Small nucleolar RNA SNORA31: a 129-nucleotide sequence from Nannospalax galili. A reference for the family is Huttenhofer et al. (2001), "RNomics: an experimental approach that identifies 201 candidates for novel, small, non-messenger RNAs in mouse", EMBO J. ACA31 (SNORA31) belongs to the H/ACA class of snoRNAs which are thought to guide the sites of modification of uridines to pseudouridines. ACA31 is predicted to guide the pseudouridylation of U3713 in 28S rRNA and U218 in 18S rRNA. This family includes the mouse homologue snoMBI-161. Rfam classes the family as an H/ACA-box small nucleolar RNA. Lineage of the source: Eukaryota > Gnathostomata > Muroidea > Spalacidae > Nannospalax.
[Rfam]
RNA sequence: AUGCAGGACAAGUGAGACCUUGACCAAUCUGUGGUUGUUCUUCAAGUAUGCACUAGGAUGCAAAAGAAAAUACUCCCUGCGUUUCUGUCUGUCUUUGUGGUUGUUGAGAUUGAAUUGGGGAGUGCAUCU
Numbered sequence: 001a002u003g004c005a006g007g008a009c010a011a012g013u014g015a016g017a018c019c020u021u022g023a024c025c026a027a028u029c030u031g032u033g034g035u036u037g038u039u040c041u042u043c044a045a046g047u048a049u050g051c052a053c054u055a056g057g058a059u060g061c062a063a064a065a066g067a068a069a070a071u072a073c074u075c076c077c078u079g080c081g082u083u084u085c086u087g088u089c090u091g092u093c094u095u096u097g098u099g100g101u102u103g104u105u106g107a108g109a110u111u112g113a114a115u116u117g118g119g120g121a122g123u124g125c126a127u128c129u
Stems, first nucleotide, its partner, number of pairs: 002062004012051001015049001017047002022040002025037004074121006084109003089103001091101003
Dot-bracket structure: .((((......(..(.((...((.((((.....)))).)).....)).).).......))))...........((((((....(((..(.(((.....))).)...)))......))))))........